This 91-nucleotide RNA from Anabarilius grahami belongs to the Rfam family "mir-146 microRNA precursor family". The match comes from Rfam's covariance-model search (59 bits). Lineage of the source: Eukaryota > Opisthokonta > Eumetazoa > Teleostomi > Anabarilius.

[Rfam]
RNA sequence: UGGAGCGCUCGGCCCUGAGAACUGAAUUCCAUAGAUGGUGUUCAUAUAGAGUUCAUCUAUGGGCUCAGUUCUUCUGGCACUGUGUUCAACU
Numbered sequence: 001u002g003g004a005g006c007g008c009u010c011g012g013c014c015c016u017g018a019g020a021a022c023u024g025a026a027u028u029c030c031a032u033a034g035a036u037g038g039u040g041u042u043c044a045u046a047u048a049g050a051g052u053u054c055a056u057c058u059a060u061g062g063g064c065u066c067a068g069u070u071c072u073u074c075u076g077g078c079a080c081u082g083u084g085u086u087c088a089a090c091u
Stems, first nucleotide, its partner, number of pairs: 008082001012078002018072008033058004